[Rfam]
mir-218 microRNA precursor family: a 78-nucleotide RNA from Acipenser ruthenus. The family has 74 seed sequences and 1,392 matches in Rfam 15.1.
RNA sequence: AGGCACUCCAUUGUGCUUGAUCUAACCAUGUGAUUAAACACUGUGGCCCAUGGUUAAGUCAAGCACCUUGGAGGGCCC
Number, nucleotide and partner (000 for none) at each position: 001a000002g077003g076004c075005a000006c073007u072008c071009c070010a000011u000012u000013g066014u065015g064016c063017u062018u061019g060020a000021u000022c000023u000024a055025a054026c053027c052028a051029u050030g049031u000032g000033a000034u000035u000036a000037a000038a000039c000040a000041c000042u000043g000044u000045g000046g000047c000048c000049c030050a029051u028052g027053g026054u025055u024056a000057a000058g000059u000060c019061a018062a017063g016064c015065a014066c013067c000068u000069u000070g009071g008072a007073g006074g000075g004076c003077c002078c000